[Rfam]
RNA sequence: CUCGUGGGCCUGCUGGGGGCAGAUGAAGUGGAUGUGCGUGUCCAGGCCGCCCGCGGUGACGAUGAGGCCCUCUCCGGCGAUGGCCUCGGUGGUGACGCCCACCACCAUGCCCGGGGUGACGCCGGCCAUGACGUCCGGGUUGCCCGCCUUGCCGAUGCCGGCGAUGCGGCCGUGUUUGAUGCCGAUGUCCGCCUUGUAGAUGCCCGUCCAGUCGAGGAUGAGGGCGUUGGUGAUGACGCAGUCGAGCGCCUCGGCGUCGCCGACGCCAGCCUGCUGGCCCAUGCCCUCGCGGAG
Numbered sequence: 001c002u003c004g005u006g007g008g009c010c011u012g013c014u015g016g017g018g019g020c021a022g023a024u025g026a027a028g029u030g031g032a033u034g035u036g037c038g039u040g041u042c043c044a045g046g047c048c049g050c051c052c053g054c055g056g057u058g059a060c061g062a063u064g065a066g067g068c069c070c071u072c073u074c075c076g077g078c079g080a081u082g083g084c085c086u087c088g089g090u091g092g093u094g095a096c097g098c099c100c101a102c103c104a105c106c107a108u109g110c111c112c113g114g115g116g117u118g119a120c121g122c123c124g125g126c127c128a129u130g131a132c133g134u135c136c137g138g139g140u141u142g143c144c145c146g147c148c149u150u151g152c153c154g155a156u157g158c159c160g161g162c163g164a165u166g167c168g169g170c171c172g173u174g175u176u177u178g179a180u181g182c183c184g185a186u187g188u189c190c191g192c193c194u195u196g197u198a199g200a201u202g203c204c205c206g207u208c209c210a211g212u213c214g215a216g217g218a219u220g221a222g223g224g225c226g227u228u229g230g231u232g233a234u235g236a237c238g239c240a241g242u243c244g245a246g247c248g249c250c251u252c253g254g255c256g257u258c259g260c261c262g263a264c265g266c267c268a269g270c271c272u273g274c275u276g277g278c279c280c281a282u283g284c285c286c287u288c289g290c291g292g293a294g
Stems, first nucleotide, its partner, number of pairs: 001292001003291005011163006017075003021071002030051002033049002036047002039044001056068002076153002080149001083147002089143005094135003103130002109126003113122001169278004175273001178270001180268002182265001190226006205214002228262003233257001235255001239253001241251001
Dot-bracket structure: (.(((((...(((((((((.((.......((.((.((.(....).))))))....((.........)).)).)))((..(..((....((((((((......((....(((.(........).)))..))..)))...)))))..)).)..))....)))))).....((((..(..(.(((.......((((((.........((......))......)))))).(((..(.(...(.(.........).).).)..)))..).)).)..).))))........))))))..
This 294-nucleotide RNA sequence from Pyxidicoccus fallax belongs to the Rfam family "5' ureB small RNA". Rfam links the family to the GO term negative regulation of gene expression. A search with the family's covariance model found it, with a score of 131 bits. The literature on the family includes a 2013 paper in J Bacteriol by Wen et al., "Helicobacter pylori 5'ureB-sRNA, a cis-encoded antisense small RNA, negatively regulates ureAB expression by transcription termination". Rfam 15.1 lists 4,812 matches to the family in 4,480 species. Taxonomically the source falls in Pyxidicoccus (Bacteria, Pseudomonadati, Myxococcales, Myxococcaceae). Pairs were carried over by alignment from the consensus structure, which was predicted with mfold.